[Rfam]
Shown here is a 139-nucleotide RNA sequence from Microtus ochrogaster, a member of the family "Small nucleolar RNA SNORA55".

Nucleotides: 139
Stems, first nucleotide, its partner, number of pairs: 002055004013046006021038001067132003071128002086119002089116004099111003
Number, partner (000 for none) and nucleotide at each position: 001000a002055c003054a004053c005052u006000u007000g008000a009000a010000u011000c012000u013046u014045u015044c016043c017042c018041g019000u020000u021038c022000g023000g024000g025000c026000u027000g028000c029000g030000u031000g032000g033000u034000g035000c036000u037000g038021g039000g040000c041018u042017g043016g044015g045014g046013a047000c048000a049000g050000a051000c052005a053004g054003u055002g056000c057000u058000a059000c060000c061000c062000c063000a064000u065000g066000a067132g068131c069130a070000a071128a072127g073000g074000c075000u076000a077000u078000c079000c080000u081000a082000u083000c084000c085000a086119g087118a088000c089116a090115a091114g092113u093000u094000g095000u096000c097000u098000u099111c100110c101109a102000u103000u104000u105000g106000c107000c108000u109101u110100g111099g112000u113092g114091c115090u116089u117000c118087u119086u120000c121000c122000u123000a124000c125000a126000a127072c128071u129000c130069u131068g132067c133000c134000u135000u136000c137000u138000u139000u
ACA55 is a member of the H/ACA class of snoRNA that guide the sites of modification of uridines to pseudouridines.